The family of this 321-nucleotide sequence from Dimargaris verticillata is "Metazoan signal recognition particle RNA". About the family: The signal recognition particle (SRP) is a universally conserved ribonucleoprotein. It is involved in the co-translational targeting of proteins to membranes. The eukaryotic SRP consists of a 300-nucleotide 7S RNA and six proteins: SRPs 72, 68, 54, 19, 14, and 9. Archaeal SRP consists of a 7S RNA and homologues of the eukaryotic SRP19 and SRP54 proteins. NCBI's taxonomy places the organism under Eukaryota, Kickxellomycota, Dimargaritales, Dimargaritaceae, Dimargaris. Gene Ontology terms of the family: signal recognition particle, endoplasmic reticulum targeting and SRP-dependent cotranslational protein targeting to membrane, signal sequence recognition. The base pairs follow the family's consensus structure, which is taken from published work. On this family, see Regalia et al., Nucleic Acids Res 2002: "Prediction of signal recognition particle RNA genes".
RNA sequence: ACUGGGAGUGGUUGCGCGCUCCUGUGAUGCAAGUUGAUGGCAAGUCAGUGCGACACUGUGCGCGUUAAGCUGGAGUUCUAGCUUGGCACCCGUGUGGGGCGCUCUCGGUGGUCUGUCUGGGUGGAAUGAGGAGUUCGGCGUUGGGUUGUCCGCGUAAGCAGACGACUUGAUGCUGUUAAAGCGGUGGGAACGGCGUGAGGCUGGCAACAGAGCAGCGAACACCACCCGCUCUGUCAUGGUCAUCCAGAUUGCAGAACGCUAAAUUUGCCCCGCAGUUGCUUGGUGCCCUACCAGUUGGAGUUACGCGCUCCAGUGUCGUUU
Numbered sequence: 001a002c003u004g005g006g007a008g009u010g011g012u013u014g015c016g017c018g019c020u021c022c023u024g025u026g027a028u029g030c031a032a033g034u035u036g037a038u039g040g041c042a043a044g045u046c047a048g049u050g051c052g053a054c055a056c057u058g059u060g061c062g063c064g065u066u067a068a069g070c071u072g073g074a075g076u077u078c079u080a081g082c083u084u085g086g087c088a089c090c091c092g093u094g095u096g097g098g099g100c101g102c103u104c105u106c107g108g109u110g111g112u113c114u115g116u117c118u119g120g121g122u123g124g125a126a127u128g129a130g131g132a133g134u135u136c137g138g139c140g141u142u143g144g145g146u147u148g149u150c151c152g153c154g155u156a157a158g159c160a161g162a163c164g165a166c167u168u169g170a171u172g173c174u175g176u177u178a179a180a181g182c183g184g185u186g187g188g189a190a191c192g193g194c195g196u197g198a199g200g201c202u203g204g205c206a207a208c209a210g211a212g213c214a215g216c217g218a219a220c221a222c223c224a225c226c227c228g229c230u231c232u233g234u235c236a237u238g239g240u241c242a243u244c245c246a247g248a249u250u251g252c253a254g255a256a257c258g259c260u261a262a263a264u265u266u267g268c269c270c271c272g273c274a275g276u277u278g279c280u281u282g283g284u285g286c287c288c289u290a291c292c293a294g295u296u297g298g299a300g301u302u303a304c305g306c307g308c309u310c311c312a313g314u315g316u317c318g319u320u321u
Stems, first nucleotide, its partner, number of pairs: 001045003004023007028042003050319009060308006066298001068296006079290003085287004090283003094279001095272006109258002112255005117247002120244005126237004130232005136175015152159002176180001183226005194217003201210003